Description: The record is a 59-nucleotide RNA sequence, which matches "Transposase-1 RNA" in Rfam. It is one of the family's seed sequences.
RNA sequence: CCAUCAUAGUUGGUCAAUGUGAUUAAUCCCUAGUUGGAAUAUCAGAAUACCGACGUUUU
Numbered sequence: 001c002c003a004u005c006a007u008a009g010u011u012g013g014u015c016a017a018u019g020u021g022a023u024u025a026a027u028c029c030c031u032a033g034u035u036g037g038a039a040u041a042u043c044a045g046a047a048u049a050c051c052g053a054c055g056u057u058u059u
Stems, first nucleotide, its partner, number of pairs: 009054006020044004027038003